[Rfam]
RNA sequence: GGGGGGGUAGCUCAGUUGGGAGAGCGCCGCGUUCGCAAUGCGGAGGUCGUGAGUUCGAUCCUCAUCCUCUCCA
Numbered sequence: 001g002g003g004g005g006g007g008u009a010g011c012u013c014a015g016u017u018g019g020g021a022g023a024g025c026g027c028c029g030c031g032u033u034c035g036c037a038a039u040g041c042g043g044a045g046g047u048c049g050u051g052a053g054u055u056c057g058a059u060c061c062u063c064a065u066c067c068u069c070u071c072c073a
Stems, first nucleotide, its partner, number of pairs: 001072007010025004027043005049065005
Source information
This 73-nucleotide RNA from Dechloromonas denitrificans belongs to the Rfam family "tRNA". The base pairs follow the family's consensus structure, which is taken from published work. It scores 61 bits against the family's covariance model. It is annotated as a transfer RNA. Taxonomically the source falls in Dechloromonas (Bacteria, Pseudomonadati, Rhodocyclales, Azonexaceae).